[Rfam]
Nucleotides: 106
Base pairs, nucleotide, nucleotide: 006105007104008103009102011023012022013021014020025100026099027098028097029096030095034091035090036089037088040067041066043064044063045062046061068080069079070078
Number, partner (000 for none) and nucleotide at each position: 001000c002000c003000g004000c005000a006105a007104g008103c009102c010000g011023u012022g013021u014020u015000a016000a017000c018000c019000g020014g021013a022012c023011g024000u025100g026099g027098c028097a029096g030095g031000g032000a033000u034091g035090a036089u037088g038000a039000a040067c041066g042000a043064a044063g045062g046061g047000u048000u049000u050000u051000u052000c053000c054000g055000g056000u057000u058000u059000c060000u061046c062045c063044u064043u065000g066041c067040g068080g069079c070078c071000g072000c073000g074000a075000a076000a077000u078070g079069g080068c081000a082000g083000g084000c085000g086000a087000g088037c089036a090035u091034c092000c093000a094000a095030c096029c097028u098027g099026u100025c101000c102009g103008g104007c105006u106000u
Rfam assigns this 106-nucleotide RNA sequence to the family "Rhizobiales sRNA Atu_At1". On this family, see Wilms et al., RNA Biol 2012: "Deep sequencing uncovers numerous small RNAs on all four replicons of the plant pathogen Agrobacterium tumefaciens". The family's consensus secondary structure was predicted with CMfinder.